[Rfam]
RNA: L19-Flavobacteria ribosomal protein leader
RNA sequence: CAACCUCUGGAAAAGUUUGAAUGUUG
Numbered sequence: 001c002a003a004c005c006u007c008u009g010g011a012a013a014a015g016u017u018u019g020a021a022u023g024u025u026g
Stems, first nucleotide, its partner, number of pairs: 001026004008021001010018002
Dot-bracket structure: ((((...(.((.....))..).))))